[Rfam]
Source information: A member of the RNA family "Small nucleolar RNA SNORA29" from Varanus komodoensis, 135 nucleotides long. The source organism's lineage runs through Eukaryota, Opisthokonta, Metazoa, Squamata and Varanus. ACA29 is a member of the H/ACA class of snoRNA that guide the sites of modification of uridines to pseudouridines. Its family is annotated with nucleolus and RNA processing in the Gene Ontology. The family is grouped with related families in Rfam's "SNORA20 clan". A reference for the family is Huttenhofer et al. (2001), "RNomics: an experimental approach that identifies 201 candidates for novel, small, non-messenger RNAs in mouse", EMBO J. It scores 118 bits against the family's covariance model. By type it is an H/ACA-box small nucleolar RNA.

RNA sequence: CUUCCCAUUUGACUACCACCUAUUUGCUUUACAAAAUAAGUGGCUAUGCUUAUGGGAUAAAGAAAUGACUGCCAUAGUCUGAAGGAGAAGACUUACAAUAUCUUUUUCCUAUAUGAAAUGGCAGAACAUACUACA
Numbered sequence: 001c002u003u004c005c006c007a008u009u010u011g012a013c014u015a016c017c018a019c020c021u022a023u024u025u026g027c028u029u030u031a032c033a034a035a036a037u038a039a040g041u042g043g044c045u046a047u048g049c050u051u052a053u054g055g056g057a058u059a060a061a062g063a064a065a066u067g068a069c070u071g072c073c074a075u076a077g078u079c080u081g082a083a084g085g086a087g088a089a090g091a092c093u094u095a096c097a098a099u100a101u102c103u104u105u106u107u108c109c110u111a112u113a114u115g116a117a118a119u120g121g122c123a124g125a126a127c128a129u130a131c132u133a134c135a
Base pairs, nucleotide, nucleotide: 004056005055006054007053016043017042018041019040071122072121073120074119088110090108091107